[Rfam]
RNA sequence: ACCCGGGCUGUGUCAAGCGGACGCGACAGGGAUGGAGAACAUAGGCAUUUUUCCGCUUUCUGCCUAUGGCCAACGAACAGGCAGGCGAGCUUCCCACCUGUCCAGCCC
Numbered sequence: 001a002c003c004c005g006g007g008c009u010g011u012g013u014c015a016a017g018c019g020g021a022c023g024c025g026a027c028a029g030g031g032a033u034g035g036a037g038a039a040c041a042u043a044g045g046c047a048u049u050u051u052u053c054c055g056c057u058u059u060c061u062g063c064c065u066a067u068g069g070c071c072a073a074c075g076a077a078c079a080g081g082c083a084g085g086c087g088a089g090c091u092u093c094c095c096a097c098c099u100g101u102c103c104a105g106c107c108c
Base pairs, nucleotide, nucleotide: 006107007106008105009104011023012022013021014020025102026101027100028099029098030097034093035092036091037090040068041067042066043065044064045063046062069082070081071080
The family of this 108-nucleotide sequence from Rhizobium sp. Root149 is "Rhizobiales sRNA Atu_At1". It scores 111 bits against the family's covariance model. The family's RNA type in Rfam is small RNA. The base pairs follow the family's consensus structure, which was predicted with CMfinder. The organism belongs to Rhizobium, within Bacteria.